[Rfam]
msiK RNA: a 58-nucleotide RNA from Actinacidiphila yanglinensis. It scores 53 bits against the family's covariance model. Rfam classes the family as a cis-regulatory element.

RNA sequence: CGGAAGCUUCCUUUACUCGGAUCGUCCGGCACGUUCCUGCCGGUGAAGGGACUGUAUA
Numbered sequence: 001c002g003g004a005a006g007c008u009u010c011c012u013u014u015a016c017u018c019g020g021a022u023c024g025u026c027c028g029g030c031a032c033g034u035u036c037c038u039g040c041c042g043g044u045g046a047a048g049g050g051a052c053u054g055u056a057u058a
Base pairs, nucleotide, nucleotide: 009050010049011048012047013046014045015044026043027042028041029040030039031038